[Rfam]
RNA sequence: UUAACUAAAAUUUGUAUGGAGUUGGAACGUUUGCCUACGUUUGCCGCUAGGGACGUUGCUCUGCAUACAAAUUUGAGAAU
Numbered sequence: 001u002u003a004a005c006u007a008a009a010a011u012u013u014g015u016a017u018g019g020a021g022u023u024g025g026a027a028c029g030u031u032u033g034c035c036u037a038c039g040u041u042u043g044c045c046g047c048u049a050g051g052g053a054c055g056u057u058g059c060u061c062u063g064c065a066u067a068c069a070a071a072u073u074u075g076a077g078a079a080u
Stems, first nucleotide, its partner, number of pairs: 008074009018064001020062002026060001028058002034052003039047002
The record is an 80-nucleotide RNA sequence from Bombyx mori, which matches "mir-2807 microRNA precursor family" in Rfam. NCBI's taxonomy places the organism under Eukaryota, Arthropoda, Mandibulata, Insecta, Bombyx. The family's consensus secondary structure was predicted with RNAalifold. Its family is annotated with RISC complex and miRNA-mediated post-transcriptional gene silencing in the Gene Ontology. The match comes from Rfam's covariance-model search (61 bits). The family has 8 seed sequences and 5,120 matches in Rfam 15.1.